[Rfam]
Shown here is a 78-nucleotide RNA sequence from Streptomyces armeniacus, a member of the family "ASpks TB sRNA".
Pairs were carried over by alignment from the consensus structure, which is taken from published work.
By type it is an antisense RNA.
A search with the family's covariance model found it, with a score of 76 bits.
Lineage of the source: Bacteria > Actinomycetota > Kitasatosporales > Streptomycetaceae > Streptomyces.

RNA sequence: CUUGACCGAGCCGAGCCACAGCGGCUCCUGCUCCGGGUCGCGCUCCUCGCCGUACGUGGCGAGCAGCGCCUGUGCCUC
Numbered sequence: 001c002u003u004g005a006c007c008g009a010g011c012c013g014a015g016c017c018a019c020a021g022c023g024g025c026u027c028c029u030g031c032u033c034c035g036g037g038u039c040g041c042g043c044u045c046c047u048c049g050c051c052g053u054a055c056g057u058g059g060c061g062a063g064c065a066g067c068g069c070c071u072g073u074g075c076c077u078c
Stems, first nucleotide, its partner, number of pairs: 014026004031074001033072001041068002046063003050059003